The family of this 111-nucleotide RNA from Capsicum baccatum is "Small nucleolar RNA Z152/R70/R12/". The family's RNA type in Rfam is C/D-box small nucleolar RNA.
RNA sequence: UAUGCUGUGAUGAGGUUAAGCACCAUAGGGUGUAUUAGGGCAGUGGAACAAGGUUUAAAUAGCCUUCUCCGUGAGCCUAUUAAUUAACGACUUCUCCUUCCACUGAGCAUU
Number, nucleotide and partner (000 for none) at each position: 001u000002a110003u109004g108005c107006u000007g000008u000009g000010a000011u000012g000013a000014g000015g000016u000017u000018a000019a000020g000021c000022a000023c000024c000025a000026u000027a000028g000029g000030g000031u000032g000033u000034a000035u000036u000037a000038g000039g000040g000041c000042a000043g000044u000045g000046g000047a000048a000049c000050a000051a000052g000053g000054u000055u000056u000057a000058a000059a000060u000061a000062g000063c000064c000065u000066u000067c000068u000069c000070c000071g000072u000073g000074a000075g000076c000077c000078u000079a000080u000081u000082a000083a000084u000085u000086a000087a000088c000089g000090a000091c000092u000093u000094c000095u000096c000097c000098u000099u000100c000101c000102a000103c000104u000105g000106a000107g005108c004109a003110u002111u000

Record summary: Its family is annotated with RNA processing and nucleolus in the Gene Ontology. A reference for the family is Barneche et al. (2001), "Identification of 66 box C/D snoRNAs in Arabidopsis thaliana: extensive gene duplications generated multiple isoforms predicting new ribosomal RNA 2'-O-methylation sites", J Mol Biol.